[Rfam]
RNA: Small nucleolar RNA SNORD16
RNA sequence: UGCCGUGAUGUCGUAAUUUGCGUCUUACUCUGUGCUCGGUGACAGUUGCCUGCUGUCGAUGUACUGGUACAGAUGGCUGACGAGCAGUUAACACUGAGCA
Number, nucleotide and partner (000 for none) at each position: 001u100002g099003c098004c000005g000006u000007g000008a000009u000010g000011u000012c000013g000014u000015a000016a000017u000018u000019u000020g000021c082022g081023u080024c079025u000026u000027a000028c000029u000030c072031u071032g070033u069034g068035c000036u000037c000038g000039g064040u063041g057042a056043c055044a054045g053046u000047u000048g000049c000050c000051u000052g000053c045054u044055g043056u042057c041058g000059a000060u000061g000062u000063a040064c039065u000066g000067g000068u034069a033070c032071a031072g030073a000074u000075g000076g000077c000078u000079g024080a023081c022082g021083a000084g000085c000086a000087g000088u000089u000090a000091a000092c000093a000094c000095u000096g000097a000098g003099c002100a001